[Rfam]
RNA sequence: CCAGGCGGCCGGGCGAUCGCGGCGAUCCUCAUGGGAUCGGCGAGGAAAGUCCGGGCUCCACGAAACGGCGGUGCCGGAUAACGUCCGGCGGUUCCUGCGCAAGCGGGGGUCAGGGAAAGUGCAACAGAGAGCAGGUCACGUCUGUCUUCGGACUAGGGCUUCGGCCGCGUGAAAAGUGAAAGGGUGCGGCAAGAGCGCACCGCGCGCCCGGCAACGGGAGCGGCACGGCAAACCCCACCGGGAGCAAGACCGAAUAGGGGCGGCACGCGGCGCAAGCCGCAGGGCAUGUUUCGGCCCGACCGCCCGGGUUGGUUGCUUGAGGCCGUUCGAGAGAACGGUCCUAGAGGAAUGAUCGCCCAUCCGCCCGCGCGUCCCCUUGGGGAUACGGCGGCGGUGGACAGAACCCGGCUUACAGGCCGCCUGGCAUU
Numbered sequence: 001c002c003a004g005g006c007g008g009c010c011g012g013g014c015g016a017u018c019g020c021g022g023c024g025a026u027c028c029u030c031a032u033g034g035g036a037u038c039g040g041c042g043a044g045g046a047a048a049g050u051c052c053g054g055g056c057u058c059c060a061c062g063a064a065a066c067g068g069c070g071g072u073g074c075c076g077g078a079u080a081a082c083g084u085c086c087g088g089c090g091g092u093u094c095c096u097g098c099g100c101a102a103g104c105g106g107g108g109g110u111c112a113g114g115g116a117a118a119g120u121g122c123a124a125c126a127g128a129g130a131g132c133a134g135g136u137c138a139c140g141u142c143u144g145u146c147u148u149c150g151g152a153c154u155a156g157g158g159c160u161u162c163g164g165c166c167g168c169g170u171g172a173a174a175a176g177u178g179a180a181a182g183g184g185u186g187c188g189g190c191a192a193g194a195g196c197g198c199a200c201c202g203c204g205c206g207c208c209c210g211g212c213a214a215c216g217g218g219a220g221c222g223g224c225a226c227g228g229c230a231a232a233c234c235c236c237a238c239c240g241g242g243a244g245c246a247a248g249a250c251c252g253a254a255u256a257g258g259g260g261c262g263g264c265a266c267g268c269g270g271c272g273c274a275a276g277c278c279g280c281a282g283g284g285c286a287u288g289u290u291u292c293g294g295c296c297c298g299a300c301c302g303c304c305c306g307g308g309u310u311g312g313u314u315g316c317u318u319g320a321g322g323c324c325g326u327u328c329g330a331g332a333g334a335a336c337g338g339u340c341c342u343a344g345a346g347g348a349a350u351g352a353u354c355g356c357c358c359a360u361c362c363g364c365c366c367g368c369g370c371g372u373c374c375c376c377u378u379g380g381g382g383a384u385a386c387g388g389c390g391g392c393g394g395u396g397g398a399c400a401g402a403a404c405c406c407g408g409c410u411u412a413c414a415g416g417c418c419g420c421c422u423g424g425c426a427u428u
Stems, first nucleotide, its partner, number of pairs: 001424010011413001012357007020042002023039006047411003051408005056244004064291002069240005074088005089113001090111009114235002119233002121229002136174001137171003142167001144165002183201006202224001203222003207218004248314004258305006282297004321340008